[Rfam]
RNA: Purine riboswitch aptamer
Organism: Ureibacillus yapensis
Nucleotides: 102
Base pairs, nucleotide, nucleotide: 018088020086021085022084023083024082025081029049032046033045034044035043058078059077060076061075062074063073064072
Number, partner (000 for none) and nucleotide at each position: 001000u002000g003000a004000g005000u006000a007000a008000a009000u010000u011000a012000a013000a014000u015000a016000u017000u018088u019000c020086g021085u022084c023083g024082u025081a026000u027000a028000a029049u030000g031000u032046c033045g034044a035043g036000a037000a038000u039000a040000u041000g042000g043035c044034u045033c046032g047000u048000g049029a050000g051000u052000u053000u054000c055000u056000a057000c058078c059077a060076a061075g062074c063073u064072a065000c066000c067000u068000u069000a070000a071000a072064u073063a074062g075061c076060u077059u078058g079000a080000c081025u082024a083023c084022g085021a086020u087000u088018a089000a090000c091000a092000u093000a094000a095000a096000a097000g098000a099000a100000u101000g102000a